[Rfam]
RNA sequence: GGAAUUAUUGGGCGUAAAGCGCGCGCAGGCGGCCUGUUAAGUCUGGUGUGAAAGACCACGGCUCAACCGUGGGGUGGCAUCAGAAACUGGCGGGCUUGAGUGCAGGAGAGGAGAGUGGAAUUCCCGGUGUAGCGGUGGAAUGCGUAGAGAUCGGGAGGAACACCAGUGGCGAAGGCGACUCUCUGGCCUGUAACUGACGCUGAGGCGCGAAAGCGUGGGGAGCGAACAGGAUUAGAUACCCUGGUAGUCCACGCCGUAAACGAUGAGUGCUAGGUGUUGGGGGUUCCGCCCUCUGUGCCGAAGGUAACCCAAUAAGCACUCCGCCUGGGGAGUACGGCCGCAAGGCUGAAACUCAAAGGAAU
Numbered sequence: 001g002g003a004a005u006u007a008u009u010g011g012g013c014g015u016a017a018a019g020c021g022c023g024c025g026c027a028g029g030c031g032g033c034c035u036g037u038u039a040a041g042u043c044u045g046g047u048g049u050g051a052a053a054g055a056c057c058a059c060g061g062c063u064c065a066a067c068c069g070u071g072g073g074g075u076g077g078c079a080u081c082a083g084a085a086a087c088u089g090g091c092g093g094g095c096u097u098g099a100g101u102g103c104a105g106g107a108g109a110g111g112a113g114a115g116u117g118g119a120a121u122u123c124c125c126g127g128u129g130u131a132g133c134g135g136u137g138g139a140a141u142g143c144g145u146a147g148a149g150a151u152c153g154g155g156a157g158g159a160a161c162a163c164c165a166g167u168g169g170c171g172a173a174g175g176c177g178a179c180u181c182u183c184u185g186g187c188c189u190g191u192a193a194c195u196g197a198c199g200c201u202g203a204g205g206c207g208c209g210a211a212a213g214c215g216u217g218g219g220g221a222g223c224g225a226a227c228a229g230g231a232u233u234a235g236a237u238a239c240c241c242u243g244g245u246a247g248u249c250c251a252c253g254c255c256g257u258a259a260a261c262g263a264u265g266a267g268u269g270c271u272a273g274g275u276g277u278u279g280g281g282g283g284u285u286c287c288g289c290c291c292u293c294u295g296u297g298c299c300g301a302a303g304g305u306a307a308c309c310c311a312a313u314a315a316g317c318a319c320u321c322c323g324c325c326u327g328g329g330g331a332g333u334a335c336g337g338c339c340g341c342a343a344g345g346c347u348g349a350a351a352c353u354c355a356a357a358g359g360a361a362u
Stems, first nucleotide, its partner, number of pairs: 011325003019322001021208004026202001028201003032095007040088002042084008056072006099195003102191005110184007117161001121157008132143003169176002213254006222248002227243004265321006273299005279293006303310002327354003336347004

The record is a 362-nucleotide part of an RNA from Kroppenstedtia eburnea, which matches "Bacterial small subunit ribosomal RNA" in Rfam.
Lineage of the source: Bacteria > Bacillati > Caryophanales > Thermoactinomycetaceae > Kroppenstedtia.
The family is grouped with related families in Rfam's "SSU clan".
The family's consensus secondary structure is taken from published work.
Its family is annotated with ribosome and structural constituent of ribosome in the Gene Ontology.